The family of this 357-nucleotide part of an RNA from uncultured archaeon A07HR60 is "Archaeal large subunit ribosomal RNA". Pairs were carried over by alignment from the consensus structure, which is taken from published work. The match comes from Rfam's covariance-model search (2720 bits).
RNA sequence: CGGGACAACCGGCGUUAGGGAAUUCGGCACGUUAGUCCCGUACCUUCGGAAGAAGGGAUGCCUGCUCUGCAGAGAGCAGGCCGCAGUGACUCGGGCGCUCCGACUGUCUAAUAACAACACAGGUGACCGCAAAUCCGCAAGGACUCGUACGGUCACUGAAUCCUGCCCAGUGCGGGUAUCUGAACACCUCCUACAAGAGGACGAAGGACCCGUUAACGGCGGGGGUAACUAUGACCCUCUUAAGGUAGCGUAGUACCUUGCCGCUUCAGUAGCGGCUUGCAUGAAUGGACCAACGAGAGCGCCACUGUCCCAACGCUGGACCCGGUGAACUGUACGUUCCAGUGCGGAGUCUGGAGA
Numbered sequence: 001c002g003g004g005a006c007a008a009c010c011g012g013c014g015u016u017a018g019g020g021a022a023u024u025c026g027g028c029a030c031g032u033u034a035g036u037c038c039c040g041u042a043c044c045u046u047c048g049g050a051a052g053a054a055g056g057g058a059u060g061c062c063u064g065c066u067c068u069g070c071a072g073a074g075a076g077c078a079g080g081c082c083g084c085a086g087u088g089a090c091u092c093g094g095g096c097g098c099u100c101c102g103a104c105u106g107u108c109u110a111a112u113a114a115c116a117a118c119a120c121a122g123g124u125g126a127c128c129g130c131a132a133a134u135c136c137g138c139a140a141g142g143a144c145u146c147g148u149a150c151g152g153u154c155a156c157u158g159a160a161u162c163c164u165g166c167c168c169a170g171u172g173c174g175g176g177u178a179u180c181u182g183a184a185c186a187c188c189u190c191c192u193a194c195a196a197g198a199g200g201a202c203g204a205a206g207g208a209c210c211c212g213u214u215a216a217c218g219g220c221g222g223g224g225g226u227a228a229c230u231a232u233g234a235c236c237c238u239c240u241u242a243a244g245g246u247a248g249c250g251u252a253g254u255a256c257c258u259u260g261c262c263g264c265u266u267c268a269g270u271a272g273c274g275g276c277u278u279g280c281a282u283g284a285a286u287g288g289a290c291c292a293a294c295g296a297g298a299g300c301g302c303c304a305c306u307g308u309c310c311c312a313a314c315g316c317u318g319g320a321c322c323c324g325g326u327g328a329a330c331u332g333u334a335c336g337u338u339c340c341a342g343u344g345c346g347g348a349g350u351c352u353g354g355a356g357a
Stems, first nucleotide, its partner, number of pairs: 001324004009319008018310003035059005044049001060081009082086001094303007101295002105119003122157008130147001134143003161289003165220003170217002172213005179208003187200004221239006240244001260276006338355005